The family of this 201-nucleotide sequence from Histophilus somni is "GcvB RNA". It scores 108 bits against the family's covariance model. The family's consensus secondary structure is taken from published work. By type it is a non-coding RNA gene.

RNA sequence: UCCAUAGAAUGCACGCAUACUUAACGAUUGGUAAUUCCUUACUGGUUAAAGAGUUUCGGACUUAAGUAUGAUGUUGUGUUUGCAUAUUGUUCGGGAAACCGAACCGAGUAACAAAUUUUAAGUUACUCAUUUACUUCCUGUAUGUAUAUUUAAACCGUUUUUUAGGUUAUGUACCGCUCUUUAUGAGCGGUAUUUUUUUAU
Numbered sequence: 001u002c003c004a005u006a007g008a009a010u011g012c013a014c015g016c017a018u019a020c021u022u023a024a025c026g027a028u029u030g031g032u033a034a035u036u037c038c039u040u041a042c043u044g045g046u047u048a049a050a051g052a053g054u055u056u057c058g059g060a061c062u063u064a065a066g067u068a069u070g071a072u073g074u075u076g077u078g079u080u081u082g083c084a085u086a087u088u089g090u091u092c093g094g095g096a097a098a099c100c101g102a103a104c105c106g107a108g109u110a111a112c113a114a115a116u117u118u119u120a121a122g123u124u125a126c127u128c129a130u131u132u133a134c135u136u137c138c139u140g141u142a143u144g145u146a147u148a149u150u151u152a153a154a155c156c157g158u159u160u161u162u163u164a165g166g167u168u169a170u171g172u173a174c175c176g177c178u179c180u181u182u183a184u185g186a187g188c189g190g191u192a193u194u195u196u197u198u199u200a201u
Stems, first nucleotide, its partner, number of pairs: 006062002012058001013056001019054002021049003027046008087106001089104006107127006142168001145165001171193007
Lineage of the source: Bacteria > Pseudomonadota > Gammaproteobacteria > Pasteurellales > Histophilus. Gene Ontology terms of the family: mRNA binding and regulation of gene expression. For this family Rfam cites "The gcvB gene encodes a small untranslated RNA involved in expression of the dipeptide and oligopeptide transport systems in Escherichia coli" (Urbanowski et al., Mol Microbiol, 2000). About the family: The gcvB gene encodes a small untranslated RNA involved in expression of the dipeptide and oligopeptide transport systems in Escherichia coli.